[Rfam]
RNA sequence: AUCAUGAUACUUCCGUCCAGCCACAGACAUCUCAAUGGGGGCGGCAGCCGGAGAUCCCGGCUGGGGUGAGAUUCCCAUGA
Numbered sequence: 001a002u003c004a005u006g007a008u009a010c011u012u013c014c015g016u017c018c019a020g021c022c023a024c025a026g027a028c029a030u031c032u033c034a035a036u037g038g039g040g041g042c043g044g045c046a047g048c049c050g051g052a053g054a055u056c057c058c059g060g061c062u063g064g065g066g067u068g069a070g071a072u073u074c075c076c077a078u079g080a
Stems, first nucleotide, its partner, number of pairs: 012077001013044006045063003049059003064076003

This 80-nucleotide RNA sequence from Clostridiales bacterium oral taxon 876 belongs to the Rfam family "pemK RNA". Lineage of the source: Bacteria > Bacillati > Bacillota > Eubacteriales > Clostridiales bacterium oral taxon 876. It scores 64 bits against the family's covariance model.